[Rfam]
RNA sequence: ACGUCGAAAGGAGGUGAUCGGGUACAUGAGUGACACCCGGACGCGCGAGGUGGCUGCGGGCUAGCGGCUCGCCACCACACCAAGUGCGGUGCCGGACCAGCGUGCGUUAGAGGUACGCAGCCGGCCCAAUCCCAAGCAGUCACCCGACCCGCGAGUUCGCCGGUACGUCCGGCCGGCUUCCCCGCCGUGAGGCAGGGGGACCCGAGCUCGCGGGUCGUCUGCG
Numbered sequence: 001a002c003g004u005c006g007a008a009a010g011g012a013g014g015u016g017a018u019c020g021g022g023u024a025c026a027u028g029a030g031u032g033a034c035a036c037c038c039g040g041a042c043g044c045g046c047g048a049g050g051u052g053g054c055u056g057c058g059g060g061c062u063a064g065c066g067g068c069u070c071g072c073c074a075c076c077a078c079a080c081c082a083a084g085u086g087c088g089g090u091g092c093c094g095g096a097c098c099a100g101c102g103u104g105c106g107u108u109a110g111a112g113g114u115a116c117g118c119a120g121c122c123g124g125c126c127c128a129a130u131c132c133c134a135a136g137c138a139g140u141c142a143c144c145c146g147a148c149c150c151g152c153g154a155g156u157u158c159g160c161c162g163g164u165a166c167g168u169c170c171g172g173c174c175g176g177c178u179u180c181c182c183c184g185c186c187g188u189g190a191g192g193c194a195g196g197g198g199g200a201c202c203c204g205a206g207c208u209c210g211c212g213g214g215u216c217g218u219c220u221g222c223g
Stems, first nucleotide, its partner, number of pairs: 014057003018053001059126004064121002067118002072113002145217013159177006